[Rfam]
RNA sequence: AGAAGAAUCACAGUGCAAGUCUCCUUUGGCAGAAAAUAUUAGCACAGGUCCUAGCUAUAUAUUGGCUGCCAAAGGAGAAUUGCCCUGCCAUUCAACA
Numbered sequence: 001a002g003a004a005g006a007a008u009c010a011c012a013g014u015g016c017a018a019g020u021c022u023c024c025u026u027u028g029g030c031a032g033a034a035a036a037u038a039u040u041a042g043c044a045c046a047g048g049u050c051c052u053a054g055c056u057a058u059a060u061a062u063u064g065g066c067u068g069c070c071a072a073a074g075g076a077g078a079a080u081u082g083c084c085c086u087g088c089c090a091u092u093c094a095a096c097a
Stems, first nucleotide, its partner, number of pairs: 005093004011087003015083004021077004027071006035063005
The record is a 97-nucleotide RNA sequence from Acer saccharum, which matches "mir-399 microRNA precursor family" in Rfam.
On this family, see Jones-Rhoades and Bartel, Mol Cell 2004: "Computational Identification of Plant MicroRNAs and Their Targets, Including a Stress-Induced miRNA".